[Rfam]
RNA sequence: GAUUUUCUUCCGGGGUGGUGAAACUAUCGAAAGAUACGCACUGAGAAAAACCCGUAGAACCUGAACUGGAUAAUGCCAGCGCAGGAAGAUGAGAAAAUCUGGGC
Numbered sequence: 001g002a003u004u005u006u007c008u009u010c011c012g013g014g015g016u017g018g019u020g021a022a023a024c025u026a027u028c029g030a031a032a033g034a035u036a037c038g039c040a041c042u043g044a045g046a047a048a049a050a051c052c053c054g055u056a057g058a059a060c061c062u063g064a065a066c067u068g069g070a071u072a073a074u075g076c077c078a079g080c081g082c083a084g085g086a087a088g089a090u091g092a093g094a095a096a097a098u099c100u101g102g103g104c
Base pairs, nucleotide, nucleotide: 006092007091009089010088011054012053013052014051016048017041018039019038020037060085061084062083063082066079067078068077069076
Notes: This 104-nucleotide RNA sequence from Niabella ginsenosidivorans belongs to the Rfam family "TPP riboswitch aptamer (THI element)". Taxonomically the source falls in Niabella (Bacteria, Chitinophagia, Chitinophagales, Chitinophagaceae). Pairs were carried over by alignment from the consensus structure, which is taken from published work.